[Rfam]
Nucleotides: 177
Base pairs, nucleotide, nucleotide: 005173006172007171009169010168011164013101015159016158017157020153021152022151026148028146029145030144031143032142039119040118041117042116043115045077046075047074048072049071055066056065057064058063084110085109087107090104091103092102121137
Number, partner (000 for none) and nucleotide at each position: 001000a002000a003000a004000u005173a006172g007171u008000u009169c010168c011164g012000g013101u014000a015159g016158g017157u018000g019000a020153g021152g022151c023000u024000a025000c026148u027000a028146c029145a030144g031143g032142g033000a034000u035000a036000u037000g038000g039119a040118u041117u042116g043115c044000u045077g046075c047074c048072g049071c050000g051000a052000a053000a054000u055066g056065g057064u058063g059000g060000a061000g062000a063058c064057a065056c066055u067000a068000u069000g070000a071049g072048c073000u074047g075046g076000u077045u078000u079000g080000a081000a082000c083000a084110g085109g086000c087107u088000a089000u090104a091103u092102c093000g094000a095000a096000c097000a098000a099000g100000a101013a102092g103091g104090u105000a106000u107087a108000a109085u110084c111000u112000a113000a114000u115043g116042c117041a118040a119039u120000u121137u122000c123000a124000c125000g126000u127000u128000g129000c130000u131000c132000a133000u134000g135000c136000a137121a138000c139000a140000u141000g142032c143031c144030c145029u146028g147000c148026a149000a150000a151022g152021u153020c154000a155000a156000a157017g158016c159015u160000c161000a162000a163000a164011c165000g166000g167000u168010g169009g170000c171007g172006u173005u174000a175000c176000u177000u
This 177-nucleotide RNA from Lachnotalea glycerini belongs to the Rfam family "M-box riboswitch aptamer (ykoK leader)". It scores 96 bits against the family's covariance model. The pairing is the family consensus, mapped onto this sequence. Rfam describes the family as follows. M-box riboswitch, also know as ykoK leader is described as a metaloregulatory RNA that sense divalent metals and function as a genetic control element of genes related to divalent metal transport in bacteria. It was first reported upstream of the B.subtilis ykoK gene and genes with related functions in other bacteria.